[Rfam]
RNA: SAM riboswitch aptamer (S box leader)
Organism: Geomicrobium sp. JCM 19038
RNA sequence: UCCUUAUCUGGAGAGGUGGAGGGACUGGCCCUAUGAAGCCCGGCAACCGGCAAUUUUUAUUGCAAUGGUGCCAAUUCCUGCAAGAUUACGUCGUAAUCUUGGGAGAUGAGAC
Numbered sequence: 001u002c003c004u005u006a007u008c009u010g011g012a013g014a015g016g017u018g019g020a021g022g023g024a025c026u027g028g029c030c031c032u033a034u035g036a037a038g039c040c041c042g043g044c045a046a047c048c049g050g051c052a053a054u055u056u057u058u059a060u061u062g063c064a065a066u067g068g069u070g071c072c073a074a075u076u077c078c079u080g081c082a083a084g085a086u087u088a089c090g091u092c093g094u095a096a097u098c099u100u101g102g103g104a105g106a107u108g109a110g111a112c
Stems, first nucleotide, its partner, number of pairs: 003110006013041001015040003021031003025080001027078002042072004047068002050063003076104001081101008